[Rfam]
RNA: Small nucleolar RNA SNORA4
Organism: Myotis davidii
RNA sequence: UUACCACAAAACUCUUUCCGAGUGAAGGUUUUUUAAUAACCUUUACCAACUGAGGCUCUUUGGGAGAAUAAAGACCACACUCCACAGUGGACUAUAUUACUAAACAUAUAGUCCAUUACUAUUUUGUGGCCUACAUU
Numbered sequence: 001u002u003a004c005c006a007c008a009a010a011a012c013u014c015u016u017u018c019c020g021a022g023u024g025a026a027g028g029u030u031u032u033u034u035a036a037u038a039a040c041c042u043u044u045a046c047c048a049a050c051u052g053a054g055g056c057u058c059u060u061u062g063g064g065a066g067a068a069u070a071a072a073g074a075c076c077a078c079a080c081u082c083c084a085c086a087g088u089g090g091a092c093u094a095u096a097u098u099a100c101u102a103a104a105c106a107u108a109u110a111g112u113c114c115a116u117u118a119c120u121a122u123u124u125u126g127u128g129g130c131c132u133a134c135a136u137u
Stems, first nucleotide, its partner, number of pairs: 004063003008059001011057001013055003020050001024046001026044001027041004072132002075129005086117012